[Rfam]
RNA: MIR390 microRNA precursor family
RNA sequence: GAGAAGUAGCUGUAAAGCUCAGGAGGGAUAGCGCCAUAAUUCACGAGUUCGUGUAUACAUAUCGGCGCUAUCCAUCCUGAGUUCCAUGGCUUCUUCUU
Number, nucleotide and partner (000 for none) at each position: 001g000002a000003g000004a000005a000006g000007u000008a000009g000010c089011u000012g000013u000014a000015a000016a083017g082018c081019u080020c079021a078022g077023g076024a075025g000026g073027g072028a071029u070030a069031g068032c067033g066034c065035c064036a000037u000038a000039a000040u000041u000042c000043a000044c000045g000046a000047g000048u000049u000050c000051g000052u000053g000054u000055a000056u000057a000058c000059a000060u000061a000062u000063c000064g035065g034066c033067g032068c031069u030070a029071u028072c027073c026074a000075u024076c023077c022078u021079g020080a019081g018082u017083u016084c000085c000086a000087u000088g000089g010090c000091u000092u000093c000094u000095u000096c000097u000098u000